[Rfam]
RNA sequence: GGAAUUUCGCUGAGCCUACCUCCUCCCAGGCUUCAGCGAAUACGGCCGAUGCCUACCUCCUCCCAGGUAUCGGUCACCCAAACGACACCCGCCGGACCUCCUCCCCCGGCGGGUGUUGUUG
Numbered sequence: 001g002g003a004a005u006u007u008c009g010c011u012g013a014g015c016c017u018a019c020c021u022c023c024u025c026c027c028a029g030g031c032u033u034c035a036g037c038g039a040a041u042a043c044g045g046c047c048g049a050u051g052c053c054u055a056c057c058u059c060c061u062c063c064c065a066g067g068u069a070u071c072g073g074u075c076a077c078c079c080a081a082a083c084g085a086c087a088c089c090c091g092c093c094g095g096a097c098c099u100c101c102u103c104c105c106c107c108g109g110c111g112g113g114u115g116u117u118g119u120u121g
Stems, first nucleotide, its partner, number of pairs: 007039003011035003014031003044075010085116011
Rfam assigns this 121-nucleotide RNA sequence from Tianweitania sediminis to the family "Alphaproteobacterial ar14". It is annotated as a small RNA. A reference for the family is Robledo et al. (2017), "A conserved alpha-proteobacterial small RNA contributes to osmoadaptation and symbiotic efficiency of rhizobia on legume roots", Environ Microbiol. Rfam's curators write: Smr14C2 was renamed NfeR1 (Nodule Formation Efficiency RNA) highly expressed in salt stress and during the symbiotic interaction on legume roots. A search with the family's covariance model found it, with a score of 94 bits. Rfam 15.1 lists 784 matches to the family in 332 species.